The family of this 139-nucleotide sequence from Peromyscus maniculatus is "Small nucleolar RNA SNORA47".
Pairs were carried over by alignment from the consensus structure, which was predicted with WAR.
[Rfam]
RNA sequence: UGGAGGACUGAGAAGGUGGGGCAGUUCCAUACCAUGCUGCCUUCCAUUGGUUAAGACCUCCGACAGCAAAGGGCUGACCAGGCAAAGGAUGUCCCUCUCCAGCACCUUGGAGGGGCAGCACUGUGCUGGCCCACAUCUC
Numbered sequence: 001u002g003g004a005g006g007a008c009u010g011a012g013a014a015g016g017u018g019g020g021g022c023a024g025u026u027c028c029a030u031a032c033c034a035u036g037c038u039g040c041c042u043u044c045c046a047u048u049g050g051u052u053a054a055g056a057c058c059u060c061c062g063a064c065a066g067c068a069a070a071g072g073g074c075u076g077a078c079c080a081g082g083c084a085a086a087g088g089a090u091g092u093c094c095c096u097c098u099c100c101a102g103c104a105c106c107u108u109g110g111a112g113g114g115g116c117a118g119c120a121c122u123g124u125g126c127u128g129g130c131c132c133a134c135a136u137c138u139c
Stems, first nucleotide, its partner, number of pairs: 002061005015048004019042007081131003086127002089124003097118002100115001103113001105112001
Dot-bracket structure: .(((((........(((((((((((..........)))))))..))))........)))))...................(((..((.(((.....((.(..(.(......)).).))...))).)).)))........
Background: It is annotated as an H/ACA-box small nucleolar RNA. The organism belongs to Peromyscus maniculatus, within Eukaryota. A search with the family's covariance model found it, with a score of 130 bits.